[Rfam]
RNA sequence: GUGGGUUCGGCUCUGCCCCCCGGAGCCGACCCCGUGACGACCCCCGCCUACCCCCCAGGCGGGGGUCGUCCUCU
Dot-bracket structure: .((((.(((((((.........))))))).)))).(((((((((((((.........)))))))))))))....

Background: This 74-nucleotide RNA from a Micromonosporaceae bacterium belongs to the Rfam family "6C RNA". It scores 69 bits against the family's covariance model. Pairs were carried over by alignment from the consensus structure, which is taken from published work. NCBI's taxonomy places the organism under Bacteria, Bacillati, Actinomycetes, Micromonosporales, Micromonosporaceae. Its family is annotated with sporulation in the Gene Ontology. It is annotated as a cis-regulatory element.